[Rfam]
Notes
Rfam assigns this 144-nucleotide RNA sequence from Schizosaccharomyces cryophilus to the family "small nucleolar RNA snR33". The source organism's lineage runs through Eukaryota, Ascomycota, Schizosaccharomycetales, Schizosaccharomycetaceae and Schizosaccharomyces cryophilus. The family's RNA type in Rfam is H/ACA-box small nucleolar RNA. Rfam links the family to the GO terms RNA processing and nucleolus. Its Rfam clan is "SNORA9 clan". The match comes from Rfam's covariance-model search (91 bits).
RNA sequence: GUGCAGCUUUGGCAAAGGGACUUGAAAAAUUAUGAGAGUUUUCUUUGUCACUUCACAUUGAAGAAUUAGCUGCUAGAAUGAAAACUCUAGUUUGAGGGAGGGAAUCUUUUAGAUGGUUUUUUCCUAUAGAAUGAGUGUACAGUC
Numbered sequence: 001g002u003g004c005a006g007c008u009u010u011g012g013c014a015a016a017g018g019g020a021c022u023u024g025a026a027a028a029a030u031u032a033u034g035a036g037a038g039u040u041u042u043c044u045u046u047g048u049c050a051c052u053u054c055a056c057a058u059u060g061a062a063g064a065a066u067u068a069g070c071u072g073c074u075a076g077a078a079u080g081a082a083a084a085c086u087c088u089a090g091u092u093u094g095a096g097g098g099a100g101g102g103a104a105u106c107u108u109u110u111a112g113a114u115g116g117u118u119u120u121u122u123c124c125u126a127u128a129g130a131a132u133g134a135g136u137g138u139a140c141a142g143u144c
Base pairs, nucleotide, nucleotide: 003073004072005071006070007069010050011049012048015044017042018041019040020039021038022037084136085135086134087133096125097124098123099122100121101120102119103118104117105116106115